The record is a 65-nucleotide sequence from Cnephaeus nilssonii, which matches "mir-9242 microRNA precursor family" in Rfam.
Taxonomically the source falls in Cnephaeus (Eukaryota, Bilateria, Sarcopterygii, Boreoeutheria).
A search with the family's covariance model found it, with a score of 74 bits.
RNA sequence: GGCCUCCCUCUGCGGGGCAAUCGAUCUGGGGUCCCCCGCCAUUGAUUGCCCCACAGAGGGAGGCC
Numbered sequence: 001g002g003c004c005u006c007c008c009u010c011u012g013c014g015g016g017g018c019a020a021u022c023g024a025u026c027u028g029g030g031g032u033c034c035c036c037c038g039c040c041a042u043u044g045a046u047u048g049c050c051c052c053a054c055a056g057a058g059g060g061a062g063g064c065c
Stems, first nucleotide, its partner, number of pairs: 001065012014052012027038004
Dot-bracket structure: ((((((((((((.((((((((((((.((((....))))..)))))))))))).))))))))))))